About this RNA:
The family of this 123-nucleotide RNA sequence from Citrus unshiu is "Small nucleolar RNA SNORD14". NCBI's taxonomy places the organism under Eukaryota, Viridiplantae, Sapindales, Rutaceae, Citrus. The family has 18 seed sequences and 4,559 matches in Rfam 15.1. From the family's description: U14 small nucleolar RNA (U14 snoRNA) is required for early cleavages of eukaryotic precursor rRNAs. In yeasts, this molecule possess a stem-loop region (known as the Y-domain) which is essential for function. A similar structure, but with a different consensus sequence, is found in plants, but is absent in vertebrates. The match comes from Rfam's covariance-model search (71 bits).
RNA sequence: GGUCUAUGAUGAUAAGUUCUCAAAGGCUUGUUUCUAAAACUUCGCAGUGCCGCCUGAGUGCUUUCGCCUUCGCCGGGCUUGAGAGCGGAUGCUGCUUUUAUCCUUCCUUGGAUGUCUGAGACC
Numbered sequence: 001g002g003u004c005u006a007u008g009a010u011g012a013u014a015a016g017u018u019c020u021c022a023a024a025g026g027c028u029u030g031u032u033u034c035u036a037a038a039a040c041u042u043c044g045c046a047g048u049g050c051c052g053c054c055u056g057a058g059u060g061c062u063u064u065c066g067c068c069u070u071c072g073c074c075g076g077g078c079u080u081g082a083g084a085g086c087g088g089a090u091g092c093u094g095c096u097u098u099u100a101u102c103c104u105u106c107c108u109u110g111g112a113u114g115u116c117u118g119a120g121a122c123c
Base pairs, nucleotide, nucleotide: 001123002122003121004120060086061085062084063083064082065081